[Rfam]
RNA sequence: GGAGAGGUGCCGGAGUGGUCGAACGGGACGGUUUCGAAAACCGUUGAGCCUCUAAAGGGUUCCCAGGGUUCGAAUCCCUGUCUCUCCG
Numbered sequence: 001g002g003a004g005a006g007g008u009g010c011c012g013g014a015g016u017g018g019u020c021g022a023a024c025g026g027g028a029c030g031g032u033u034u035c036g037a038a039a040a041c042c043g044u045u046g047a048g049c050c051u052c053u054a055a056a057g058g059g060u061u062c063c064c065a066g067g068g069u070u071c072g073a074a075u076c077c078c079u080g081u082c083u084c085u086c087c088g
Base pairs, nucleotide, nucleotide: 001087002086003085004084005083006082007081010026011025012024028044029043030042031041032040064080065079066078067077068076
Record summary
This 88-nucleotide sequence from Octadecabacter sp. SW4 belongs to the Rfam family "tRNA". It is annotated as a transfer RNA. Transfer RNA (tRNA) molecules are approximately 80 nucleotides in length. A search with the family's covariance model found it, with a score of 52 bits. Rfam links the family to the GO term triplet codon-amino acid adaptor activity. Taxonomically the source falls in Octadecabacter (Bacteria, Pseudomonadati, Pseudomonadota, Roseobacteraceae).